[Rfam]
A member of the RNA family "Iron response element II" from Dibothriocephalus latus, 31 nucleotides long. Rfam's curators write: IRE, TFRC, SLC40A1, SDHB, SLC11A2, CDC42BPA, ACO2, ALAS2_H.SAPIENS, CDC14A, EPAS1, ALAS2, qoxD, Hao1, NDUFS1, transferrin, Aconitate. It scores 32 bits against the family's covariance model. For this family Rfam cites "Accommodating variety in iron-responsive elements: Crystal structure of transferrin receptor 1 B IRE bound to iron regulatory protein 1" (Walden et al., FEBS Lett, 2012). Taxonomically the source falls in Dibothriocephalus (Eukaryota, Opisthokonta, Metazoa, Protostomia). Pairs were carried over by alignment from the consensus structure, which is taken from published work.
RNA sequence: UUAUUAUCAUGGGCAGUGUCUUAUAUAACAU
Numbered sequence: 001u002u003a004u005u006a007u008c009a010u011g012g013g014c015a016g017u018g019u020c021u022u023a024u025a026u027a028a029c030a031u
Stems, first nucleotide, its partner, number of pairs: 002030001004028004009024005014018001